A member of the RNA family "tRNA" from Candidatus Caldarchaeum subterraneum, 74 nucleotides long.
NCBI's taxonomy places the organism under Archaea, Thermoproteati, Nitrososphaerota, Candidatus Caldarchaeales, Candidatus Caldarchaeum.
Rfam describes the family as follows. Transfer RNA (tRNA) molecules are approximately 80 nucleotides in length.
[Rfam]
RNA sequence: GCGGCCGUAGUCUAGCCAGGUAGGACGGCGGGGCCCCGGCCCGCAGGUCCCGGGUUCAAAUCCCGGCGGCCGCA
Numbered sequence: 001g002c003g004g005c006c007g008u009a010g011u012c013u014a015g016c017c018a019g020g021u022a023g024g025a026c027g028g029c030g031g032g033g034c035c036c037c038g039g040c041c042c043g044c045a046g047g048u049c050c051c052g053g054g055u056u057c058a059a060a061u062c063c064c065g066g067c068g069g070c071c072g073c074a
Stems, first nucleotide, its partner, number of pairs: 001073007010026004028044005050066005